[Rfam]
RNA sequence: UGUCUCCUCCAUGUCUCCUCCUGAUAUGGAUUCACCCGCUCAACUUGAGCGGGUUUUUUUU
Numbered sequence: 001u002g003u004c005u006c007c008u009c010c011a012u013g014u015c016u017c018c019u020c021c022u023g024a025u026a027u028g029g030a031u032u033c034a035c036c037c038g039c040u041c042a043a044c045u046u047g048a049g050c051g052g053g054u055u056u057u058u059u060u061u
Stems, first nucleotide, its partner, number of pairs: 008030008034054008
Overview: The family of this 61-nucleotide RNA sequence from Trinickia caryophylli is "Betaproteobacteria toxic small RNA". From the family's description: Overexpression in amino aid rich medium attenuates growth, suggesting role in repressing amino acid intake and metabolism.